[Rfam]
RNA: t44 RNA
RNA sequence: AGUCGGUCCGUUGUAAACCACACACGUAUCGACACGGUGAGCCGGGUGCCCGCGCAACGGGUCGUUCGCCGGGAUGCGUGGAGGCUGAAC
Dot-bracket structure: ......................((((((((....((((((((.....(((((.....))))).)))))))).))))))))..........